[Rfam]
A member of the RNA family "Small nucleolar RNA SNORA11" from Callithrix jacchus, 127 nucleotides long. The match comes from Rfam's covariance-model search (93 bits).
Nucleotides: 127
Base pairs, nucleotide, nucleotide: 004053005052006051007050008049013044014043015042017040018039019037020036021034022033023032068120069119070118071117076112077111080109083102084101087099088098089097090096091095
Number, partner (000 for none) and nucleotide at each position: 001000g002000g003000g004053g005052u006051g007050u008049g009000c010000u011000u012000g013044g014043g015042g016000u017040a018039g019037g020036g021034g022033c023032c024000u025000g026000a027000a028000a029000a030000a031000u032023g033022g034021c035000u036020c037019c038000u039018c040017u041000c042015u043014u044013u045000a046000c047000a048000a049008c050007a051006c052005a053004u054000g055000g056000a057000a058000c059000a060000g061000g062000c063000a064000u065000c066000u067000g068120g069119g070118g071117u072000c073000a074000c075000c076112g077111u078000g079000a080109c081000a082000a083102g084101g085000u086000g087099u088098a089097c090096a091095a092000a093000a094000u095091u096090u097089g098088u099087g100000g101084c102083u103000c104000c105000c106000u107000a108000a109080g110000a111077a112076c113000a114000a115000a116000u117071g118070u119069c120068c121000c122000a123000c124000a125000u126000g127000u

About the family: U107 (SNORA11) is a member of the H/ACA class of snoRNAs that guide the sites of modification of uridines to pseudouridines. This snoRNA was identified by RT-PCR from blood cells and its expression confirmed by Northern blot analysis. There is no predicted target for this guide snRNA. It is annotated as an H/ACA-box small nucleolar RNA. Rfam links the family to the GO terms nucleolus and RNA processing. A reference for the family is Gu et al. (2005), "A novel experimental approach for systematic identification of box H/ACA snoRNAs from eukaryotes", Nucleic Acids Res.